The family of this 99-nucleotide RNA sequence from Desulfosporosinus sp. Sb-LF is "SAM riboswitch aptamer (S box leader)". The source organism's lineage runs through Bacteria, Bacillota, Clostridia, Eubacteriales and Desulfosporosinus. The match comes from Rfam's covariance-model search (84 bits).
[Rfam]
RNA sequence: CUCUUAUUCAGAGAGGUGGAGGGACUGGCCCGAUGAAACCCGGCAACCGGCAUUAAGCACGGUGCUAAAUCCUGCAGAGAAAAAUCUGAGAGAUAAGAG
Numbered sequence: 001c002u003c004u005u006a007u008u009c010a011g012a013g014a015g016g017u018g019g020a021g022g023g024a025c026u027g028g029c030c031c032g033a034u035g036a037a038a039c040c041c042g043g044c045a046a047c048c049g050g051c052a053u054u055a056a057g058c059a060c061g062g063u064g065c066u067a068a069a070u071c072c073u074g075c076a077g078a079g080a081a082a083a084a085u086c087u088g089a090g091a092g093a094u095a096a097g098a099g
Stems, first nucleotide, its partner, number of pairs: 001099008013041001015040003021031003025074001027072002042066004047062002049058001051057001070091001075088004